A member of the RNA family "Vault RNA" from Oryzias latipes, 99 nucleotides long.
RNA sequence: ACAUUGGUUUGGCUCAGUGGUUUUUUCUACCGGUGAUUUGUCACAUCUGACGGUCAGCGGUUCGAAACAGUUUGACUACAGGGACUGCCCGAUGUUUUU
Dot-bracket structure: .((((((.....((..((((....(((.(................................).))).........)))).))......)))))).....
By type it is a non-coding RNA gene. NCBI's taxonomy places the organism under Eukaryota, Eumetazoa, Deuterostomia, Acanthomorphata, Oryzias. It is one of the family's seed sequences.